A member of the RNA family "mir-135 microRNA precursor family" from Phrynocephalus forsythii, 86 nucleotides long. The organism belongs to Phrynocephalus, within Eukaryota.
RNA sequence: CCUCUGUUGUGGUCUAUGGCUUUUUAUUCCUAUGUGAUUGCAUUUCAUAAUUCAUGUAGGGCUAAAAGCCAUGGGCUACACAGAGG
Dot-bracket structure: .((((((.(((((((((((((((..(.((((((((((..............)))))))))).).))))))))))))))))))))).